6S / SsrS RNA: a 183-nucleotide RNA from Alteromonas halophila. Rfam 15.1 lists 5,006 matches to the family in 4,638 species. It scores 100 bits against the family's covariance model. The literature on the family includes a 2000 paper in Cell by Wassarman and Storz, "6S RNA regulates E. coli RNA polymerase activity". NCBI's taxonomy places the organism under Bacteria, Pseudomonadati, Gammaproteobacteria, Alteromonadales, Alteromonas. The family's consensus secondary structure is taken from published work. About the family: E. coli 6S RNA was the first non coding RNA to be sequenced, but its function was unknown until recently.
RNA sequence: UGCUUCCUGGGAUGUUUGCCAGUUCAUUCAUGUCCCUGGCCGAUGCUUUAAACUAAGGAAGUUGAACCGAUAACUAUUGAGCAAGCUCGACGCGUAUCGAGAAGCCUGCGGUUAUCGUGAUUCUUCCGCCCUGAACUUUUCGGUUCAAGGGCGAAUAAUGAACAGCGGCAUCUUGGGAGGCGC
Number, nucleotide and partner (000 for none) at each position: 001u000002g181003c180004u179005u178006c177007c176008u175009g174010g173011g172012a171013u170014g169015u168016u000017u167018g166019c165020c000021a000022g000023u000024u000025c000026a000027u000028u000029c000030a000031u000032g152033u151034c150035c149036c000037u147038g146039g145040c143041c142042g000043a000044u000045g000046c000047u000048u000049u000050a000051a000052a000053c000054u000055a000056a000057g127058g126059a125060a000061g123062u000063u000064g000065a000066a118067c000068c117069g116070a115071u114072a113073a112074c111075u110076a000077u000078u000079g000080a000081g105082c104083a000084a000085g000086c101087u100088c099089g098090a097091c000092g000093c000094g000095u000096a000097u090098c089099g088100a087101g086102a000103a000104g082105c081106c000107u000108g000109c000110g075111g074112u073113u072114a071115u070116c069117g068118u066119g000120a000121u000122u000123c061124u000125u059126c058127c057128g000129c000130c000131c000132u000133g000134a000135a000136c000137u000138u000139u000140u000141c000142g041143g040144u000145u039146c038147a037148a000149g035150g034151g033152c032153g000154a000155a000156u000157a000158a000159u000160g000161a000162a000163c000164a000165g019166c018167g017168g015169c014170a013171u012172c011173u010174u009175g008176g007177g006178a005179g004180g003181c002182g000183c000